The record is a 31-nucleotide sequence from Halalkalibacter akibai, which matches "L31-Firmicutes ribosomal protein leader" in Rfam. By type it is a cis-regulatory leader. Its Rfam clan is "Ribosomal Protein L31 Leader clan". Rfam's curators put it in the seed alignment. The organism belongs to Halalkalibacter akibai, within Bacteria.
RNA sequence: UUCUGUUUCGAAAAGAUUCAGGGCAAAGGAG
Numbered sequence: 001u002u003c004u005g006u007u008u009c010g011a012a013a014a015g016a017u018u019c020a021g022g023g024c025a026a027a028g029g030a031g
Base pairs, nucleotide, nucleotide: 001023002022003021004020005019008016009015